[Rfam]
The record is a 77-nucleotide RNA from Selenomonas sputigena, which matches "ZMP/ZTP riboswitch aptamer (pfl RNA motif)" in Rfam.
RNA sequence: AAUAAGCUGCAUAACUGACGGAAGUGGAUGACCACAAGGGAGUGCAGCAGGAAAAGCCGACCGUCUGGGCAGCCGCA
Numbered sequence: 001a002a003u004a005a006g007c008u009g010c011a012u013a014a015c016u017g018a019c020g021g022a023a024g025u026g027g028a029u030g031a032c033c034a035c036a037a038g039g040g041a042g043u044g045c046a047g048c049a050g051g052a053a054a055a056g057c058c059g060a061c062c063g064u065c066u067g068g069g070c071a072g073c074c075g076c077a
Stems, first nucleotide, its partner, number of pairs: 003051001006048007015039002017065005024035004056070003
For this family Rfam cites "Recognition of the bacterial alarmone ZMP through long-distance association of two RNA subdomains" (Jones and Ferre-D'Amare, Nat Struct Mol Biol, 2015).